[Rfam]
RNA: HDV ribozyme from F. prausnitzii
Organism: Rodentolepis nana
RNA sequence: GGGGUGCAGGAUAGACUUACCUCCUCGUGGUGCACCCUGGACAACGUAUUUUCUUACGGCAAAAAAGUCUAU
Numbered sequence: 001g002g003g004g005u006g007c008a009g010g011a012u013a014g015a016c017u018u019a020c021c022u023c024c025u026c027g028u029g030g031u032g033c034a035c036c037c038u039g040g041a042c043a044a045c046g047u048a049u050u051u052u053c054u055u056a057c058g059g060c061a062a063a064a065a066a067g068u069c070u071a072u
Stems, first nucleotide, its partner, number of pairs: 001038007019031003045058004
Dot-bracket structure: (((((((...........(((.......))))))))))......((((......))))..............